RNA sequence: GGGGAUGAUCGGUUUCGACAGCGGCUGUUGAAGCAGGGGAAGCGUGUCGAGGAAGCGGCAAUGAUCUCGUAAACCAUAUGUCGCAAAAAAUAAUCGCCAAUACCAAGAGCGAUUCCCAGUCCUACGCCCUCGCUGCCUAAUAAGCAGUGAUGUAGGACCCUAAAGGGUGUCAGCCCGGGAGUGUUCCCGGCCCGGAUCCUGGCAUAAUCUAGGGAACUAAACCAUCUGGCCCGGUCACGGGGUCGGAUGGGAAAUCAAACAGUGACUGGGCCCGUCGGCGACUUGUUCGCGUGAUCACCGGGGCCGAGAAAAUCACAGCGAACUGCACACGGAGAAGCCCUGAUUCUGCACCGUUGGACGCGGGUUCGAUUCCCGCCAUCUCCACUC
Numbered sequence: 001g002g003g004g005a006u007g008a009u010c011g012g013u014u015u016c017g018a019c020a021g022c023g024g025c026u027g028u029u030g031a032a033g034c035a036g037g038g039g040a041a042g043c044g045u046g047u048c049g050a051g052g053a054a055g056c057g058g059c060a061a062u063g064a065u066c067u068c069g070u071a072a073a074c075c076a077u078a079u080g081u082c083g084c085a086a087a088a089a090a091u092a093a094u095c096g097c098c099a100a101u102a103c104c105a106a107g108a109g110c111g112a113u114u115c116c117c118a119g120u121c122c123u124a125c126g127c128c129c130u131c132g133c134u135g136c137c138u139a140a141u142a143a144g145c146a147g148u149g150a151u152g153u154a155g156g157a158c159c160c161u162a163a164a165g166g167g168u169g170u171c172a173g174c175c176c177g178g179g180a181g182u183g184u185u186c187c188c189g190g191c192c193c194g195g196a197u198c199c200u201g202g203c204a205u206a207a208u209c210u211a212g213g214g215a216a217c218u219a220a221a222c223c224a225u226c227u228g229g230c231c232c233g234g235u236c237a238c239g240g241g242g243u244c245g246g247a248u249g250g251g252a253a254a255u256c257a258a259a260c261a262g263u264g265a266c267u268g269g270g271c272c273c274g275u276c277g278g279c280g281a282c283u284u285g286u287u288c289g290c291g292u293g294a295u296c297a298c299c300g301g302g303g304c305c306g307a308g309a310a311a312a313u314c315a316c317a318g319c320g321a322a323c324u325g326c327a328c329a330c331g332g333a334g335a336a337g338c339c340c341u342g343a344u345u346c347u348g349c350a351c352c353g354u355u356g357g358a359c360g361c362g363g364g365u366u367c368g369a370u371u372c373c374c375g376c377c378a379u380c381u382c383c384a385c386u387c
Stems, first nucleotide, its partner, number of pairs: 001383007019356006030346003034342005043331005048069005055084006128152001130150007168204006175195004183217006222250009233267006269305005276300003280296002285323004360376005
RNA: transfer-messenger RNA
Organism: Streptomyces sp. 3214.6